[Rfam]
RNA sequence: UGGGCCUGGGAGGGGUGGCUGCCGUUUCUUCUAACCCUAACCACGAGGGGCGUAGGCGCCGUGCUUUUGUUCCCCGCGCGCUGUUUUUCUGGCUGACUUUCAGCGGGCGGAAAAGCCUUGGCCUGCCGCCUUCCACAAUCCAGUCUGGAACAAACAAAAAAUGUCAGCCACCGGCCAGUUCGCCCCUCCCGGGGACCUGCGAUGGCUGGCCCGCCCGGCCCCCGAGCCCUGCCUAAAGGCCGCGGUCGGCCUGGGGCUUCUCCGGAGGUGCCCGCUGCCGCCGCGAAGAGUUAGGCUCUGUCAGCCGCGGGUCCCUCGGGGGCCAAGGGCGAGGUUUAGCCUGUUAACGCAGGAAGAGUAACGGAGCCGGGUCCCCGCACGCGGUGCGCUUCCCUGAGCUGUGGGACUUGCACCCGGGACUCGGCUCCUACAUGC
Numbered sequence: 001u002g003g004g005c006c007u008g009g010g011a012g013g014g015g016u017g018g019c020u021g022c023c024g025u026u027u028c029u030u031c032u033a034a035c036c037c038u039a040a041c042c043a044c045g046a047g048g049g050g051c052g053u054a055g056g057c058g059c060c061g062u063g064c065u066u067u068u069g070u071u072c073c074c075c076g077c078g079c080g081c082u083g084u085u086u087u088u089c090u091g092g093c094u095g096a097c098u099u100u101c102a103g104c105g106g107g108c109g110g111a112a113a114a115g116c117c118u119u120g121g122c123c124u125g126c127c128g129c130c131u132u133c134c135a136c137a138a139u140c141c142a143g144u145c146u147g148g149a150a151c152a153a154a155c156a157a158a159a160a161a162u163g164u165c166a167g168c169c170a171c172c173g174g175c176c177a178g179u180u181c182g183c184c185c186c187u188c189c190c191g192g193g194g195a196c197c198u199g200c201g202a203u204g205g206c207u208g209g210c211c212c213g214c215c216c217g218g219c220c221c222c223c224g225a226g227c228c229c230u231g232c233c234u235a236a237a238g239g240c241c242g243c244g245g246u247c248g249g250c251c252u253g254g255g256g257c258u259u260c261u262c263c264g265g266a267g268g269u270g271c272c273c274g275c276u277g278c279c280g281c282c283g284c285g286a287a288g289a290g291u292u293a294g295g296c297u298c299u300g301u302c303a304g305c306c307g308c309g310g311g312u313c314c315c316u317c318g319g320g321g322g323c324c325a326a327g328g329g330c331g332a333g334g335u336u337u338a339g340c341c342u343g344u345u346a347a348c349g350c351a352g353g354a355a356g357a358g359u360a361a362c363g364g365a366g367c368c369g370g371g372u373c374c375c376c377g378c379a380c381g382c383g384g385u386g387c388g389c390u391u392c393c394c395u396g397a398g399c400u401g402u403g404g405g406a407c408u409u410g411c412a413c414c415c416g417g418g419a420c421u422c423g424g425c426u427c428c429u430a431c432a433u434g435c
Stems, first nucleotide, its partner, number of pairs: 005193014021175004063116005075109003079105005092168006098161003196353006209335003212331005220321007228311005241285005247280004253273003287299004364427004369422007384413005391406004